[Rfam]
This 83-nucleotide RNA sequence from Pongo abelii belongs to the Rfam family "mir-548 microRNA precursor family". The literature on the family includes a 2010 paper in BMC Biol by Witten et al., "Ultra-high throughput sequencing-based small RNA discovery and discrete statistical biomarker analysis in a collection of cervical tumours and matched controls". It scores 93 bits against the family's covariance model. Its family is annotated with miRNA-mediated post-transcriptional gene silencing and RISC complex in the Gene Ontology.
Nucleotides: 083
Base pairs, nucleotide, nucleotide: 001083002082003081004080005079006078007077008076009075010074011073012072013071014070015069016068017067018066019065020064021063022062023061024060025059026058028056029055030054031053032052033051034050035049036048037047038046039044
Number, partner (000 for none) and nucleotide at each position: 001083c002082a003081u004080u005079a006078g007077g008076u009075u010074g011073g012072u013071c014070c015069a016068a017067a018066a019065g020064u021063a022062a023061u024060u025059g026058c027000u028056g029055u030054u031053u032052u033051u034050g035049c036048c037047a038046u039044a040000a041000a042000a043000g044039u045000a046038a047037u048036g049035g050034c051033a052032a053031a054030a055029a056028c057000u058026g059025c060024a061023a062022u063021u064020a065019c066018u067017u068016u069015u070014g071013g072012a073011c074010c075009a076008a077007c078006c079005u080004a081003a082002u083001g